Rfam assigns this 72-nucleotide RNA from Gorilla gorilla to the family "mir-3689 microRNA precursor family". Pairs were carried over by alignment from the consensus structure, which was predicted with RNAalifold.

RNA sequence: GGGAGGUGUGAUCCUGUACUCUCUGGGAGGUGUGAUCCCGUGUUCCCUGGGAGGUGUGAUAUCAUGCUCCCU
Numbered sequence: 001g002g003g004a005g006g007u008g009u010g011a012u013c014c015u016g017u018a019c020u021c022u023c024u025g026g027g028a029g030g031u032g033u034g035a036u037c038c039c040g041u042g043u044u045c046c047c048u049g050g051g052a053g054g055u056g057u058g059a060u061a062u063c064a065u066g067c068u069c070c071c072u
Stems, first nucleotide, its partner, number of pairs: 001071005015058004020053001022051006029044001031042004

NCBI's taxonomy places the organism under Eukaryota, Deuterostomia, Catarrhini, Hominoidea, Gorilla gorilla.